[Rfam]
RNA: Nuclear RNase P
RNA sequence: UGUGUGGCGAGUUUGUACAAGGGAUUACGAAAGCGCACAUGUUGCGUACAGUUAUCCUUGGGAAGGUCUGAGAUAGUGCCUUUACAGAUCCGUGAGGGAUCCCCGCACAAUUCUGGGGCAGGCCAAGAGCAAAUGCUAUGUUCCGCUGUGAGGUUGCAAAGGAGGCAGCAAUCUGCUGAUGCUUUCCUGCAGCGUGAAUUUGGGAAAGCUUGUGGCAAGCUACAACAGCUCGAUGUGCAAAGCCCGUAAGGGUAACUCAAUUCAGACUACUCUUCCACGCA
Dot-bracket structure: ((((..(.(..(((((((.(((((........(((((.....))))).......)))))........[[[[[....((((......(((((.....)))))((((.(....).))))((((((................(((......................................................)))........)))))))))).................)))))))((((....)))).......]]]]].......).)..))))
Numbered sequence: 001u002g003u004g005u006g007g008c009g010a011g012u013u014u015g016u017a018c019a020a021g022g023g024a025u026u027a028c029g030a031a032a033g034c035g036c037a038c039a040u041g042u043u044g045c046g047u048a049c050a051g052u053u054a055u056c057c058u059u060g061g062g063a064a065g066g067u068c069u070g071a072g073a074u075a076g077u078g079c080c081u082u083u084a085c086a087g088a089u090c091c092g093u094g095a096g097g098g099a100u101c102c103c104c105g106c107a108c109a110a111u112u113c114u115g116g117g118g119c120a121g122g123c124c125a126a127g128a129g130c131a132a133a134u135g136c137u138a139u140g141u142u143c144c145g146c147u148g149u150g151a152g153g154u155u156g157c158a159a160a161g162g163a164g165g166c167a168g169c170a171a172u173c174u175g176c177u178g179a180u181g182c183u184u185u186c187c188u189g190c191a192g193c194g195u196g197a198a199u200u201u202g203g204g205a206a207a208g209c210u211u212g213u214g215g216c217a218a219g220c221u222a223c224a225a226c227a228g229c230u231c232g233a234u235g236u237g238c239a240a241a242g243c244c245c246g247u248a249a250g251g252g253u254a255a256c257u258c259a260a261u262u263c264a265g266a267c268u269a270c271u272c273u274u275c276c277a278c279g280c281a
Stems, first nucleotide, its partner, number of pairs: 001281004007275001009273001012241007020059005033047005068265005077217004087101005102117004107112001118213006140199003242253004